Notes: Rfam assigns this 83-nucleotide RNA sequence from Macaca mulatta to the family "mir-582 microRNA precursor family". It is one of the family's seed sequences. The source organism's lineage runs through Eukaryota, Amniota, Mammalia, Cercopithecoidea and Macaca. Rfam 15.1 lists 128 matches to the family in 128 species.
Nucleotides: 083
Stems, first nucleotide, its partner, number of pairs: 003078008015066012029052005
Number, partner (000 for none) and nucleotide at each position: 001000g002000u003078g004077c005076u006075c007074u008073u009072u010071g011000a012000u013000u014000a015066c016065a017064g018063u019062u020061g021060u022059u023058c024057a025056a026055c027000c028000a029052g030051u031050u032049a033048c034000u035000a036000a037000u038000c039000u040000a041000c042000c043000u044000a045000a046000u047000u048033g049032u050031a051030a052029c053000u054000g055026g056025u057024u058023g059022a060021a061020c062019a063018a064017c065016u066015g067000a068000a069000c070000c071010c072009a073008a074007a075006g076005g077004g078003u079000g080000c081000a082000a083000a